[Rfam]
The record is a 92-nucleotide sequence, which matches "Hepatitis C virus stem-loop SL8670" in Rfam. Pairs were carried over by alignment from the consensus structure, which was predicted with RNAfold.

RNA sequence: AGAGUGCUGGGGUCGAGGAGGACGCGGCAAGCCUGCGAGUCUUCACGGAGGCUAUGACCAGGUAUUCUGCCCCCCCCGGAGACCCACCCCAA
Numbered sequence: 001a002g003a004g005u006g007c008u009g010g011g012g013u014c015g016a017g018g019a020g021g022a023c024g025c026g027g028c029a030a031g032c033c034u035g036c037g038a039g040u041c042u043u044c045a046c047g048g049a050g051g052c053u054a055u056g057a058c059c060a061g062g063u064a065u066u067c068u069g070c071c072c073c074c075c076c077c078g079g080a081g082a083c084c085c086a087c088c089c090c091a092a
Stems, first nucleotide, its partner, number of pairs: 006087001009084002013080002017076002020073002026071003030066001031063005038053006